[Rfam]
RNA: c-di-AMP riboswitch aptamer (ydaO/yuaA leader)
Organism: Paenibacillus sp. OAS669
RNA sequence: UCAUAAUAAAGGCCGAAGCUAAUAGAAGCACGGGGGAACCAAUCUUUGGGGUGAAGCCGCAUCAGCGGCAGGGUGAUUGACCUUUGACCCGAAUCCGUCAGCUAACCUCGCAGGCCGAAAAAAGGAGAGGU
Numbered sequence: 001u002c003a004u005a006a007u008a009a010a011g012g013c014c015g016a017a018g019c020u021a022a023u024a025g026a027a028g029c030a031c032g033g034g035g036g037a038a039c040c041a042a043u044c045u046u047u048g049g050g051g052u053g054a055a056g057c058c059g060c061a062u063c064a065g066c067g068g069c070a071g072g073g074u075g076a077u078u079g080a081c082c083u084u085u086g087a088c089c090c091g092a093a094u095c096c097g098u099c100a101g102c103u104a105a106c107c108u109c110g111c112a113g114g115c116c117g118a119a120a121a122a123a124g125g126a127g128a129g130g131u
Stems, first nucleotide, its partner, number of pairs: 011116004018029003031110005040048002049096003057068004071090004